[Rfam]
RNA: Small nucleolar RNA SNORD82
Organism: Conger conger
RNA sequence: AGUACACAUGAUGAACAACAAGGGACUUAAUACUGAAUAUUUUUUGAUGUCAGCUUUCAUUACUCUGAUGUGC
Numbered sequence: 001a002g003u004a005c006a007c008a009u010g011a012u013g014a015a016c017a018a019c020a021a022g023g024g025a026c027u028u029a030a031u032a033c034u035g036a037a038u039a040u041u042u043u044u045u046g047a048u049g050u051c052a053g054c055u056u057u058c059a060u061u062a063c064u065c066u067g068a069u070g071u072g073c
Stems, first nucleotide, its partner, number of pairs: 002073005